[Rfam]
Annotation: Alpha operon ribosome binding site: a 110-nucleotide RNA sequence from secondary endosymbiont of Heteropsylla cubana. Pairs were carried over by alignment from the consensus structure, which is taken from published work. The family's RNA type in Rfam is cis-regulatory element. The literature on the family includes a 2001 paper in J Biol Chem by Schlax et al., "Translational repression of the Escherichia coli alpha operon mRNA: importance of an mRNA conformational switch and a ternary entrapment complex". The bacterial alpha operon ribosome binding site is surrounded by this complex pseudoknotted structure. Translation of the mRNA produces 4 ribosomal protein products, one of which (S4) acts as a translational repressor by binding to the nested pseudoknot region. The mechanism of repression is thought to involve a conformational switch in the pseudoknot region and ribosome entrapment.
RNA sequence: UCAUAAUAGCGUUGUUUAAGUAUCCUGAAACGGGCUUUUCAGAACAAUGUCAGCAUUUAAAAUCUUAGGAGUGCAUAGUGGCCCGUAUAGCAGGCAUUAACAUUCCUGAU
Numbered sequence: 001u002c003a004u005a006a007u008a009g010c011g012u013u014g015u016u017u018a019a020g021u022a023u024c025c026u027g028a029a030a031c032g033g034g035c036u037u038u039u040c041a042g043a044a045c046a047a048u049g050u051c052a053g054c055a056u057u058u059a060a061a062a063u064c065u066u067a068g069g070a071g072u073g074c075a076u077a078g079u080g081g082c083c084c085g086u087a088u089a090g091c092a093g094g095c096a097u098u099a100a101c102a103u104u105c106c107u108g109a110u
Stems, first nucleotide, its partner, number of pairs: 004055001007052001009050005024094003031085004039109003